[Rfam]
RNA sequence: CAUUCGCGCCUGUAUCUUGCUGAACCGUUACCGAUAUGGCACAGAAUCCGGUUGAGCAAAAUUUCAGGUGUGUGAGAAA
Numbered sequence: 001c002a003u004u005c006g007c008g009c010c011u012g013u014a015u016c017u018u019g020c021u022g023a024a025c026c027g028u029u030a031c032c033g034a035u036a037u038g039g040c041a042c043a044g045a046a047u048c049c050g051g052u053u054g055a056g057c058a059a060a061a062u063u064u065c066a067g068g069u070g071u072g073u074g075a076g077a078a079a
Stems, first nucleotide, its partner, number of pairs: 003076004007070006014062002017059002020056002023053001025051003
A member of the RNA family "mir-87 microRNA precursor family" from Drosophila ananassae, 79 nucleotides long.
The base pairs follow the family's consensus structure, which was predicted with RNAalifold.